Background: The family of this 81-nucleotide RNA from Nesidiocoris tenuis is "mir-315 microRNA precursor family". The match comes from Rfam's covariance-model search (66 bits). Rfam links the family to the GO terms RISC complex and miRNA-mediated post-transcriptional gene silencing.
RNA sequence: UUCUCUCGUUGUUUUGAUUGUUGCUCAGAAAGCCUUGUUUUGACUGAUGGCUUUCUAGCAAUAAUCAUGACCACGCGAAAC
Number, nucleotide and partner (000 for none) at each position: 001u000002u080003c000004u078005c077006u000007c075008g000009u000010u000011g000012u070013u069014u000015u067016g066017a065018u064019u000020g062021u061022u060023g059024c058025u057026c000027a000028g055029a054030a053031a052032g051033c050034c049035u000036u000037g000038u000039u000040u000041u000042g000043a000044c000045u000046g000047a000048u000049g034050g033051c032052u031053u030054u029055c028056u000057a025058g024059c023060a022061a021062u020063a000064a018065u017066c016067a015068u000069g013070a012071c000072c000073a000074c000075g007076c000077g005078a004079a000080a002081c000